[Rfam]
RNA sequence: GGUCAUCGGGCGACGCACUCCUCCUCCCAGUGUUGCCUGAUACGGAUCGACAACAUCCUCCUCCUCCCAGUUGUCGAUCAAGUUUAAAGCCUGGCGCACCCUCCUCCCGCGCCAGGCUUUUUCC
Numbered sequence: 001g002g003u004c005a006u007c008g009g010g011c012g013a014c015g016c017a018c019u020c021c022u023c024c025u026c027c028c029a030g031u032g033u034u035g036c037c038u039g040a041u042a043c044g045g046a047u048c049g050a051c052a053a054c055a056u057c058c059u060c061c062u063c064c065u066c067c068c069a070g071u072u073g074u075c076g077a078u079c080a081a082g083u084u085u086a087a088a089g090c091c092u093g094g095c096g097c098a099c100c101c102u103c104c105u106c107c108c109g110c111g112c113c114a115g116g117c118u119u120u121u122u123c124c
Base pairs, nucleotide, nucleotide: 007039008038009037010036011035012034013033014032015031016030045079046078047077048076049075050074051073052072053071054070087119088118089117090116091115092114093113094112095111096110097109